[Rfam]
RNA sequence: UUGCGAAGCGCAUGCUUGAUGACCACCGCCGGGAAACUCAGGCCUUUGAGGCGCGCGGUGCGGAUAUAUUGCUGCGUCAUCACCUCCACCAUGGAGGCGCGCGUCAUCCUCGCUAUGUAGCCGAUGCCGUAGAUUGCCAUGGUCAUCACGGGCAGGGUGAAAUUGUAGAAGCUCGG
Numbered sequence: 001u002u003g004c005g006a007a008g009c010g011c012a013u014g015c016u017u018g019a020u021g022a023c024c025a026c027c028g029c030c031g032g033g034a035a036a037c038u039c040a041g042g043c044c045u046u047u048g049a050g051g052c053g054c055g056c057g058g059u060g061c062g063g064a065u066a067u068a069u070u071g072c073u074g075c076g077u078c079a080u081c082a083c084c085u086c087c088a089c090c091a092u093g094g095a096g097g098c099g100c101g102c103g104u105c106a107u108c109c110u111c112g113c114u115a116u117g118u119a120g121c122c123g124a125u126g127c128c129g130u131a132g133a134u135u136g137c138c139a140u141g142g143u144c145a146u147c148a149c150g151g152g153c154a155g156g157g158u159g160a161a162a163u164u165g166u167a168g169a170a171g172c173u174c175g176g
Stems, first nucleotide, its partner, number of pairs: 004142001006140001008138001010137003015132002017129002022125001030123003042111001047106003051102005056076002060072004083097005149175005155166001157164001